[Rfam]
RNA: MIR6217 microRNA precursor family
RNA sequence: UGGCUACAAAAUAACUUAUUCUGUAGUCCCUUUGAGUUACGAUAAUUAUUAUAUUAAUUUACGAAAUUGUAGUAACUCCUUACUAGGUGGUUUACUAUAACAUUAUGAUAAAUAUCCCCUUGUGUUAUAAUAACCCAACUAUCGUAAAUAUGUAUUGAUAUUAUCGUAAAUGGAGAUGGCUACAGAAUAACUUAUUUUAUAGCUG
Numbered sequence: 001u002g003g004c005u006a007c008a009a010a011a012u013a014a015c016u017u018a019u020u021c022u023g024u025a026g027u028c029c030c031u032u033u034g035a036g037u038u039a040c041g042a043u044a045a046u047u048a049u050u051a052u053a054u055u056a057a058u059u060u061a062c063g064a065a066a067u068u069g070u071a072g073u074a075a076c077u078c079c080u081u082a083c084u085a086g087g088u089g090g091u092u093u094a095c096u097a098u099a100a101c102a103u104u105a106u107g108a109u110a111a112a113u114a115u116c117c118c119c120u121u122g123u124g125u126u127a128u129a130a131u132a133a134c135c136c137a138a139c140u141a142u143c144g145u146a147a148a149u150a151u152g153u154a155u156u157g158a159u160a161u162u163a164u165c166g167u168a169a170a171u172g173g174a175g176a177u178g179g180c181u182a183c184a185g186a187a188u189a190a191c192u193u194a195u196u197u198u199a200u201a202g203c204u205g
Base pairs, nucleotide, nucleotide: 001205002204003203004202005201006200008198009197010196011195012194013193014192016190017189018188019187020186021185022184023183024182025181026180027179028178031175032174033173037169038168039167040166041165042164043163044162045161046160062157065156066155067154071153072151073150074149080147081146082145083144087142088141089140090139091138092137093132094131096129097128098127099126100125101124102123103122107117